[Rfam]
RNA sequence: UUCCGAGCCACCAUUUAGGUUGCAAGAGUGGAACGGAAAGCCCUAACA
Number, nucleotide and partner (000 for none) at each position: 001u037002u036003c035004c000005g000006a000007g000008c031009c030010a000011c000012c026013a000014u000015u046016u045017a044018g043019g042020u000021u000022g000023c000024a000025a000026g012027a000028g000029u000030g009031g008032a000033a000034c000035g003036g002037a001038a000039a000040g000041c000042c019043c018044u017045a016046a015047c000048a000
Shown here is a 48-nucleotide RNA from Polerovirus SCYLV, a member of the family "Exoribonuclease-resistant RNA (xrRNA) plant-infecting virus (class 3)". Rfam describes the family as follows. Exoribonuclease-resistant RNA (xrRNA) plant-infecting virus (class 3) is a ncRNA that was reported in Plant viruses. The source organism's lineage runs through Viruses, Riboviria, Pisoniviricetes, Solemoviridae and Polerovirus SCYLV. Rfam's curators put it in the seed alignment. Its family is annotated with viral RNA genome replication in the Gene Ontology.